[Rfam]
RNA sequence: UGAAUAUCUCAAAACUGGCGGAGUCAGUGGAAAACCACGAGGGAUUGAGAGUAUUAUAAUGAUUAGCCGACCGCCUGGGCGCUUACA
Numbered sequence: 001u002g003a004a005u006a007u008c009u010c011a012a013a014a015c016u017g018g019c020g021g022a023g024u025c026a027g028u029g030g031a032a033a034a035c036c037a038c039g040a041g042g043g044a045u046u047g048a049g050a051g052u053a054u055u056a057u058a059a060u061g062a063u064u065a066g067c068c069g070a071c072c073g074c075c076u077g078g079g080c081g082c083u084u085a086c087a
Stems, first nucleotide, its partner, number of pairs: 003054001007050006015042002017075005027038004066080003
This 87-nucleotide sequence from Fusibacter sp. 3D3 belongs to the Rfam family "ZMP/ZTP riboswitch aptamer (pfl RNA motif)". The source organism's lineage runs through Bacteria, Bacillota, Eubacteriales, Fusibacteraceae and Fusibacter. The base pairs follow the family's consensus structure, which is taken from published work. A search with the family's covariance model found it, with a score of 57 bits.